tRNA: an 85-nucleotide RNA from Desulfomonile tiedjei. Rfam classes the family as a transfer RNA. Its Rfam clan is "tRNA clan". Rfam's curators write: Transfer RNA (tRNA) molecules are approximately 80 nucleotides in length.
Nucleotides: 085
Base pairs, nucleotide, nucleotide: 001084002083003082004081005080006079007078010026011025012024028044029043030042031041032040061077062076063075064074065073
Number, partner (000 for none) and nucleotide at each position: 001084g002083c003082c004081u005080g006079a007078g008000u009000g010026g011025u012024g013000g014000a015000a016000u017000a018000g019000g020000u021000a022000g023000a024012c025011a026010c027000a028044a029043g030042g031041g032040a033000c034000u035000u036000a037000a038000a039000a040032u041031c042030c043029c044028u045000u046000g047000g048000g049000g050000c051000u052000u053000g054000u055000c056000c057000c058000c059000g060000u061077g062076a063075c064074g065073g066000u067000u068000c069000g070000a071000c072000u073065c074064c075063g076062u077061c078007c079006u080005c081004a082003g083002g084001c085000a